[Rfam]
Nucleotides: 071
Stems, first nucleotide, its partner, number of pairs: 030049007
Number, partner (000 for none) and nucleotide at each position: 001000g002000g003000c004000u005000c006000a007000g008000c009000u010000c011000u012000u013000g014000c015000a016000a017000a018000g019000a020000c021000c022000c023000a024000a025000c026000u027000a028000c029000c030049g031048g032047u033046a034045g035044c036043c037000a038000a039000a040000g041000g042000c043036g044035g045034c046033u047032a048031c049030c050000c051000c052000a053000c054000a055000g056000a057000c058000g059000a060000c061000a062000c063000a064000g065000a066000c067000g068000u069000c070000g071000c